[Rfam]
RNA: mir-204 microRNA precursor family
RNA sequence: AUAUGACCUGUGGCCUUCCCUUUGUCAUCCUAUGCCUGGAUUCAUUCAAAUGGGGCUGGGAAGGCAAAGGGACGUCCAGUUGUCAUGCAA
Numbered sequence: 001a002u003a004u005g006a007c008c009u010g011u012g013g014c015c016u017u018c019c020c021u022u023u024g025u026c027a028u029c030c031u032a033u034g035c036c037u038g039g040a041u042u043c044a045u046u047c048a049a050a051u052g053g054g055g056c057u058g059g060g061a062a063g064g065c066a067a068a069g070g071g072a073c074g075u076c077c078a079g080u081u082g083u084c085a086u087g088c089a090a
Stems, first nucleotide, its partner, number of pairs: 017072006024065002028061005034056004